The record is a 139-nucleotide RNA sequence from Oryza meyeriana, which matches "Small nucleolar RNA Z247" in Rfam.
Lineage of the source: Eukaryota > Streptophyta > Embryophyta > Mesangiospermae > Oryza meyeriana.
It scores 72 bits against the family's covariance model.
Pairs were carried over by alignment from the consensus structure, which was predicted with PFOLD.
On this family, see Chen et al., Nucleic Acids Res 2003: "The high diversity of snoRNAs in plants: identification and comparative study of 120 snoRNA genes from Oryza sativa".

RNA sequence: ACACUUGAUGAUGAUGAACUAGUGUCCUACAUCUUGGCUGGACUGGACUUCGACUACAAUCCAAUAGUCUCCUCCAUCACCACACGAACAGAUCCAAUCACUGUAAGUGAGGCUGUCGCACAACUCAUGAACUUUGAGA
Numbered sequence: 001a002c003a004c005u006u007g008a009u010g011a012u013g014a015u016g017a018a019c020u021a022g023u024g025u026c027c028u029a030c031a032u033c034u035u036g037g038c039u040g041g042a043c044u045g046g047a048c049u050u051c052g053a054c055u056a057c058a059a060u061c062c063a064a065u066a067g068u069c070u071c072c073u074c075c076a077u078c079a080c081c082a083c084a085c086g087a088a089c090a091g092a093u094c095c096a097a098u099c100a101c102u103g104u105a106a107g108u109g110a111g112g113c114u115g116u117c118g119c120a121c122a123a124c125u126c127a128u129g130a131a132c133u134u135u136g137a138g139a
Stems, first nucleotide, its partner, number of pairs: 004138005088108002092104002